[Rfam]
Description:
A member of the RNA family "L4-Archaeoglobi ribosomal protein leades", 97 nucleotides long. The family's consensus secondary structure is taken from published work.
RNA sequence: CUGACGGGCGCGUUCGGGUCAAUUGCGGCAUGCAACACCCGAUCUCCCUCCUCGCUCCCGACCGGGAGUUCGAGGUCGGAGAGCGCGUUACCGUCAG
Numbered sequence: 001c002u003g004a005c006g007g008g009c010g011c012g013u014u015c016g017g018g019u020c021a022a023u024u025g026c027g028g029c030a031u032g033c034a035a036c037a038c039c040c041g042a043u044c045u046c047c048c049u050c051c052u053c054g055c056u057c058c059c060g061a062c063c064g065g066g067a068g069u070u071c072g073a074g075g076u077c078g079g080a081g082a083g084c085g086c087g088u089u090a091c092c093g094u095c096a097g
Base pairs, nucleotide, nucleotide: 001097002096003095004094005093008088009087010086011085012084013083015041016040017039018038023035024034025033026032027031043082044081045080046079047078050075051074052073053072